This 174-nucleotide RNA sequence from Trichonephila inaurata belongs to the Rfam family "Wolbachia sRNA 46". The literature on the family includes a 2014 paper in Proc Natl Acad Sci U S A by Mayoral et al., "Wolbachia small noncoding RNAs and their role in cross-kingdom communications". It scores 88 bits against the family's covariance model. The base pairs follow the family's consensus structure. By type it is a small RNA.
[Rfam]
RNA sequence: AGUGCCUCUAUGAUGUCAUCCCAGUGCGUGACACUGGGAUCCAGAAAAGUUUGCUUGUGAACAAGCAAACUAGUAUGGAAAGUAGCUGAUCUUACACUAAAUGAAUGUUUUUGAUGAGGUUGCAUAGAAGCUGGAUUCCAGUGUCAAGCACUGGAAUGACAUCGUUUACUAUGU
Numbered sequence: 001a002g003u004g005c006c007u008c009u010a011u012g013a014u015g016u017c018a019u020c021c022c023a024g025u026g027c028g029u030g031a032c033a034c035u036g037g038g039a040u041c042c043a044g045a046a047a048a049g050u051u052u053g054c055u056u057g058u059g060a061a062c063a064a065g066c067a068a069a070c071u072a073g074u075a076u077g078g079a080a081a082g083u084a085g086c087u088g089a090u091c092u093u094a095c096a097c098u099a100a101a102u103g104a105a106u107g108u109u110u111u112u113g114a115u116g117a118g119g120u121u122g123c124a125u126a127g128a129a130g131c132u133g134g135a136u137u138c139c140a141g142u143g144u145c146a147a148g149c150a151c152u153g154g155a156a157u158g159a160c161a162u163c164g165u166u167u168a169c170u171a172u173g174u
Base pairs, nucleotide, nucleotide: 014161015160016159017158018157019156021154022153023152024151025150026149027148029146030145031144032143033142034141035140036139037138038137039136040135041134042133043132044131